[Rfam]
Nucleotides: 143
Stems, first nucleotide, its partner, number of pairs: 023054002026051002029049002037045002088118002090115003095110003098106002132143004
Number, partner (000 for none) and nucleotide at each position: 001000a002000g003000c004000u005000u006000u007000g008000c009000u010000c011000a012000g013000u014000g015000g016000u017000g018000g019000c020000a021000u022000c023054g024053u025000a026051g027050c028000a029049g030048c031000c032000c033000a034000u035000a036000a037045a038044g039000u040000u041000u042000a043000u044038c045037u046000g047000a048030g049029c050027g051026c052000c053024a054023u055000u056000a057000u058000u059000g060000c061000u062000a063000a064000u065000u066000g067000a068000a069000a070000a071000c072000u073000u074000u075000g076000c077000u078000c079000g080000g081000u082000a083000c084000c085000c086000c087000a088118c089117c090115a091114u092113g093000a094000a095110g096109a097108c098106c099105u100000g101000c102000c103000a104000u105099a106098g107000a108097g109096u110095u111000a112000g113092u114091a115090u116000u117089g118088g119000c120000a121000a122000u123000u124000u125000u126000u127000g128000a129000c130000a131000a132143u133142u134141u135140c136000u137000a138000c139000a140135g141134a142133g143132a